Rfam assigns this 84-nucleotide RNA sequence from Streptomyces sp. NRRL S-1521 to the family "Streptomyces RNA 6106".
RNA sequence: ACGCCGCCCGUGCGGUGUUCAUGCUCCUCAAGGGGCCUGAAGUGCGGGGGUGGUGCCGUGUCGGCGCAGCACCACCCCCGUCUC
Numbered sequence: 001a002c003g004c005c006g007c008c009c010g011u012g013c014g015g016u017g018u019u020c021a022u023g024c025u026c027c028u029c030a031a032g033g034g035g036c037c038u039g040a041a042g043u044g045c046g047g048g049g050g051u052g053g054u055g056c057c058g059u060g061u062c063g064g065c066g067c068a069g070c071a072c073c074a075c076c077c078c079c080g081u082c083u084c
Stems, first nucleotide, its partner, number of pairs: 001018007019042001022039002025035003044081013058067003
The literature on the family includes a 2011 paper in RNA Biol by Vockenhuber et al., "Deep sequencing-based identification of small non-coding RNAs in Streptomyces coelicolor".
From the family's description: Identified by deep sequencing of transcriptome at the end of exponential growth phase. Appears smaller on northern blot than sequencing transcript.
A search with the family's covariance model found it, with a score of 62 bits.
Taxonomically the source falls in Streptomyces (Bacteria, Bacillati, Actinomycetes, Streptomycetaceae).